[Rfam]
The record is a 74-nucleotide RNA sequence from Mustela putorius, which matches "Small nucleolar RNA SNORD99" in Rfam.
Its Rfam clan is "SNORD58 clan".
By type it is a C/D-box small nucleolar RNA.
For this family Rfam cites "Purified box C/D snoRNPs are able to reproduce site-specific 2'-O-methylation of target RNA in vitro" (Galardi et al., Mol Cell Biol, 2002).
It is one of the family's seed sequences.
The source organism's lineage runs through Eukaryota, Euteleostomi, Mammalia, Caniformia and Mustela putorius.
RNA sequence: ACUGGUCCAGGAUGAAACCUAAUCUGAGUGGACAUCUGUGGAUGAUAAAUGCGGAUAUGGGACUGAGACCAGCU
Numbered sequence: 001a002c003u004g005g006u007c008c009a010g011g012a013u014g015a016a017a018c019c020u021a022a023u024c025u026g027a028g029u030g031g032a033c034a035u036c037u038g039u040g041g042a043u044g045a046u047a048a049a050u051g052c053g054g055a056u057a058u059g060g061g062a063c064u065g066a067g068a069c070c071a072g073c074u
Base pairs, nucleotide, nucleotide: 002072003071004070005069